[Rfam]
The family of this 58-nucleotide RNA from Kingdonia uniflora is "Plastid-psbA-3 3UTR RNA". On this family, see Richter et al., Plant Commun 2023: "Retrograde signaling in plants: A critical review focusing on the GUN pathway and beyond". Clan: Plastid-psbA 3UTR RNA clan. By type it is a cis-regulatory element. From the family's description: Plastid psbA-3 is a non-coding RNA (ncRNA) present in plastids. It was identified in inverted repeat sequences in the 3 prime untranslate region (3UTR) of photosystem II quinone-binding protein (psbA). It scores 50 bits against the family's covariance model.
RNA sequence: GAAGGAGCAAUACCCAAGUUCUUCUUCUAUCAUGAGGGUGGGUAUUGAUCCUUCAUUU
Numbered sequence: 001g002a003a004g005g006a007g008c009a010a011u012a013c014c015c016a017a018g019u020u021c022u023u024c025u026u027c028u029a030u031c032a033u034g035a036g037g038g039u040g041g042g043u044a045u046u047g048a049u050c051c052u053u054c055a056u057u058u
Base pairs, nucleotide, nucleotide: 001054002053003052004051005050006049008047009046010045011044012043013042014041019036020035021034023032
Dot-bracket structure: ((((((.(((((((....(((.(........).)))....))))))).))))))....